Shown here is a 99-nucleotide RNA sequence from Desulfosudis oleivorans, a member of the family "Bacterial small signal recognition particle RNA".
The literature on the family includes a 2002 paper in Nucleic Acids Res by Regalia et al., "Prediction of signal recognition particle RNA genes".
Its Rfam clan is "SRP clan".
The match comes from Rfam's covariance-model search (58 bits).
Lineage of the source: Bacteria > Thermodesulfobacteriota > Desulfobacteria > Desulfosudaceae > Desulfosudis oleivorans.

[Rfam]
RNA sequence: GGCCGGCCGCCAUGCAACUGACGGCCGGGAACCUCGUCAGGUCCGGAAGGAAGCAGCGAUAACCGGUGCAGGCAGUGUCAUGGAUCGUUCCCGGUCUUG
Numbered sequence: 001g002g003c004c005g006g007c008c009g010c011c012a013u014g015c016a017a018c019u020g021a022c023g024g025c026c027g028g029g030a031a032c033c034u035c036g037u038c039a040g041g042u043c044c045g046g047a048a049g050g051a052a053g054c055a056g057c058g059a060u061a062a063c064c065g066g067u068g069c070a071g072g073c074a075g076u077g078u079c080a081u082g083g084a085u086c087g088u089u090c091c092c093g094g095u096c097u098u099g
Base pairs, nucleotide, nucleotide: 004093005092006091010083011082012081013080014079015077017076018075019074020073022071024067025066026065027064028063034059035058036057037056042051043050044049